[Rfam]
RNA sequence: UGGUUCAAGUGGAGAAGUGGUCUUUACGCUUUGAAUUAAAGUGAGAUUCACUCCUCCAACUUACUCCU
Numbered sequence: 001u002g003g004u005u006c007a008a009g010u011g012g013a014g015a016a017g018u019g020g021u022c023u024u025u026a027c028g029c030u031u032u033g034a035a036u037u038a039a040a041g042u043g044a045g046a047u048u049c050a051c052u053c054c055u056c057c058a059a060c061u062u063a064c065u066c067c068u
Base pairs, nucleotide, nucleotide: 007062008061009060010058011057012056013055014054017052023046024045027043028042029041030040031039